The record is a 188-nucleotide RNA sequence from Aspergillus udagawae, which matches "Small nucleolar RNA snR80" in Rfam. The source organism's lineage runs through Eukaryota, Opisthokonta, Fungi, Eurotiomycetidae and Aspergillus subgen. Fumigati. On this family, see Schattner et al., Nucleic Acids Res 2004: "Genome-wide searching for pseudouridylation guide snoRNAs: analysis of the Saccharomyces cerevisiae genome". Its Rfam clan is "SNORA28 clan". A search with the family's covariance model found it, with a score of 47 bits. Pairs were carried over by alignment from the consensus structure, which was predicted with WAR.
[Rfam]
RNA sequence: UGACCUUUGCAACACUCUGGCUCUUACCGUUCUUUCCCGCCUUCGGGCCUGGAUUGAACUCACGCAACGUGGUAUAGGCUUAUUUUACGCAAAGAAGAUCAACACUUGACCCUCUACUCACCGCGGUAUCCUUGGAGGGGAGCUUGCUUCUCUCCGUGGGUACAGUGGUCCAUCUUUUGGGUCGACAU
Numbered sequence: 001u002g003a004c005c006u007u008u009g010c011a012a013c014a015c016u017c018u019g020g021c022u023c024u025u026a027c028c029g030u031u032c033u034u035u036c037c038c039g040c041c042u043u044c045g046g047g048c049c050u051g052g053a054u055u056g057a058a059c060u061c062a063c064g065c066a067a068c069g070u071g072g073u074a075u076a077g078g079c080u081u082a083u084u085u086u087a088c089g090c091a092a093a094g095a096a097g098a099u100c101a102a103c104a105c106u107u108g109a110c111c112c113u114c115u116a117c118u119c120a121c122c123g124c125g126g127u128a129u130c131c132u133u134g135g136a137g138g139g140g141a142g143c144u145u146g147c148u149u150c151u152c153u154c155c156g157u158g159g160g161u162a163c164a165g166u167g168g169u170c171c172a173u174c175u176u177u178u179g180g181g182u183c184g185a186c187a188u
Stems, first nucleotide, its partner, number of pairs: 007092003019080004025074004030057002034053003108183004121168004126163003130160003